[Rfam]
Shown here is a 150-nucleotide RNA from Effusibacillus dendaii, a member of the family "SAM riboswitch aptamer (S box leader)".

RNA sequence: CUCUUAUCAAGAGUUCGGCUGAGGGACUGGCCCGAUGAAGCCGCAGCAACCGACUUUACGGGAAAGCAGGCAGCCAGGGCUGCUGCUGCAAAUGACCGUAUGUAGCACGGUGCCAAUUCCGACGAGAAUCUGAUUCUCGAAAGAUGAGAG
Numbered sequence: 001c002u003c004u005u006a007u008c009a010a011g012a013g014u015u016c017g018g019c020u021g022a023g024g025g026a027c028u029g030g031c032c033c034g035a036u037g038a039a040g041c042c043g044c045a046g047c048a049a050c051c052g053a054c055u056u057u058a059c060g061g062g063a064a065a066g067c068a069g070g071c072a073g074c075c076a077g078g079g080c081u082g083c084u085g086c087u088g089c090a091a092a093u094g095a096c097c098g099u100a101u102g103u104a105g106c107a108c109g110g111u112g113c114c115a116a117u118u119c120c121g122a123c124g125a126g127a128a129u130c131u132g133a134u135u136c137u138c139g140a141a142a143g144a145u146g147a148g149a150g
Base pairs, nucleotide, nucleotide: 001150002149003148004147005146006145007144008143013044016043017042018041019040023033024032025031028121029120030119046113047112048111050110051109052106118142123139124138125137126136127135128134
Taxonomically the source falls in Effusibacillus (Bacteria, Bacilli, Caryophanales, Alicyclobacillaceae). A search with the family's covariance model found it, with a score of 80 bits. A reference for the family is Grundy and Henkin (1998), "The S box regulon: a new global transcription termination control system for methionine and cysteine biosynthesis genes in gram-positive bacteria", Mol Microbiol.